[Rfam]
RNA sequence: GGGUGGGAACGCGACUGGCGGCACGGGGAUGGCACCAACCAUCGGGGAGCUCGCCGUGGGAGUCGACCGCCUGGGCACCCACG
Numbered sequence: 001g002g003g004u005g006g007g008a009a010c011g012c013g014a015c016u017g018g019c020g021g022c023a024c025g026g027g028g029a030u031g032g033c034a035c036c037a038a039c040c041a042u043c044g045g046g047g048a049g050c051u052c053g054c055c056g057u058g059g060g061a062g063u064c065g066a067c068c069g070c071c072u073g074g075g076c077a078c079c080c081a082c083g
Stems, first nucleotide, its partner, number of pairs: 003054004011050002015046002017071005029042004060078001062076003